[Rfam]
RNA sequence: UUGUUUGCGGGAGUAGCAUCAUCAAGAUUCACAUGCAACUGCACGGUGGCGAUGAUAAUAAUACUAACUCUCUUUCCUCUUUCUCCUUUCUUCCCUCCCUGUCCUAAAUUUUAUUGCCAAACUUCUUUGAAAGUGAGAAUCUUGAUGAUGCUGCAUCGGCAAUAAA
Numbered sequence: 001u002u003g004u005u006u007g008c009g010g011g012a013g014u015a016g017c018a019u020c021a022u023c024a025a026g027a028u029u030c031a032c033a034u035g036c037a038a039c040u041g042c043a044c045g046g047u048g049g050c051g052a053u054g055a056u057a058a059u060a061a062u063a064c065u066a067a068c069u070c071u072c073u074u075u076c077c078u079c080u081u082u083c084u085c086c087u088u089u090c091u092u093c094c095c096u097c098c099c100u101g102u103c104c105u106a107a108a109u110u111u112u113a114u115u116g117c118c119a120a121a122c123u124u125c126u127u128u129g130a131a132a133g134u135g136a137g138a139a140u141c142u143u144g145a146u147g148a149u150g151c152u153g154c155a156u157c158g159g160c161a162a163u164a165a166a
Stems, first nucleotide, its partner, number of pairs: 010157002013154018032135002
RNA: mir-172 microRNA precursor family